[Rfam]
RNA sequence: CGGAGAUGCACCUCCGAACUGGUUGAGUAGAAGCCUAGAGAACUCCUAUUUUCCCAGGUCAGAGUGCAUCUCCACUUUCAUGUCCAGGCACUGGACGAACCAUCACCCGGUGGAUCGAG
Numbered sequence: 001c002g003g004a005g006a007u008g009c010a011c012c013u014c015c016g017a018a019c020u021g022g023u024u025g026a027g028u029a030g031a032a033g034c035c036u037a038g039a040g041a042a043c044u045c046c047u048a049u050u051u052u053c054c055c056a057g058g059u060c061a062g063a064g065u066g067c068a069u070c071u072c073c074a075c076u077u078u079c080a081u082g083u084c085c086a087g088g089c090a091c092u093g094g095a096c097g098a099a100c101c102a103u104c105a106c107c108c109g110g111u112g113g114a115u116c117g118a119g
Base pairs, nucleotide, nucleotide: 002073003072004071005070006069007068008067009066010065011064013062016060017059019057020056021055022054025051026050027049028048030046032044033043096117097116098115100113101112102111103110104109